[Rfam]
RNA sequence: AUUUGCAGAAAUAAAAACACAGUUCGGUAGGUAGUCCGGACGCAUAUUAAGUAAAUUUAAUAUGUCAGUAGCCUUCCCCCUCGGGAUGUCCAUUUUCUGUAUGAAUUUA
Dot-bracket structure: ...((((((((..........((((((........))))))((((((((((....)))))))))).........((((....)))).......))))))))........
Rfam assigns this 109-nucleotide RNA sequence from Clostridium carboxidivorans to the family "azaaromatic riboswitch aptamer (yjdF RNA)".